[Rfam]
A member of the RNA family "tRNA" from Purpureocillium lilacinum, 82 nucleotides long.
The organism belongs to Purpureocillium, within Eukaryota.
Its family is annotated with triplet codon-amino acid adaptor activity in the Gene Ontology.
Rfam classes the family as a transfer RNA.
Rfam describes the family as follows. Transfer RNA (tRNA) molecules are approximately 80 nucleotides in length.
It scores 51 bits against the family's covariance model.
RNA sequence: GCGUGAUUGGUUUAGUGGUAAAAUUCUCCGUUGCCAUCCGCGCAACGUCGGGGAGCCCUGGGUUCGAUUCCCAGAUCACGCA
Numbered sequence: 001g002c003g004u005g006a007u008u009g010g011u012u013u014a015g016u017g018g019u020a021a022a023a024u025u026c027u028c029c030g031u032u033g034c035c036a037u038c039c040g041c042g043c044a045a046c047g048u049c050g051g052g053g054a055g056c057c058c059u060g061g062g063u064u065c066g067a068u069u070c071c072c073a074g075a076u077c078a079c080g081c082a
Stems, first nucleotide, its partner, number of pairs: 001081007010024004026053005058074005